[Rfam]
RNA sequence: AGAUCCUUUAACAGAGUCCAGUGAGGCGAAGAAGGAAGCGGAACGUAUUAAGUAUGUAGAGAUACGUAUAUCUAAAUCCCUUUUUUCCUUAUGGAGAAAAGGGAUUUUUUA
Numbered sequence: 001a002g003a004u005c006c007u008u009u010a011a012c013a014g015a016g017u018c019c020a021g022u023g024a025g026g027c028g029a030a031g032a033a034g035g036a037a038g039c040g041g042a043a044c045g046u047a048u049u050a051a052g053u054a055u056g057u058a059g060a061g062a063u064a065c066g067u068a069u070a071u072c073u074a075a076a077u078c079c080c081u082u083u084u085u086u087c088c089u090u091a092u093g094g095a096g097a098a099a100a101g102g103g104a105u106u107u108u109u110u111a
Base pairs, nucleotide, nucleotide: 004036005035006034007033008032009031016027017026018025045072049068050067052065053064054063075106076105077104078103079102080101081100082099083098084097085096086095087094088093

Rfam assigns this 111-nucleotide sequence from Virgibacillus salinus to the family "PyrR binding site".
Pairs were carried over by alignment from the consensus structure, which is taken from published work.
A search with the family's covariance model found it, with a score of 57 bits.
Rfam 15.1 lists 1,498 matches to the family in 930 species.
About the family: This family represents the PyrR binding site and terminator structure. This RNA structure is found upstream of a variety of genes involved in pyrimidine biosynthesis and transport. The alignment also includes a portion of the antiterminator structure.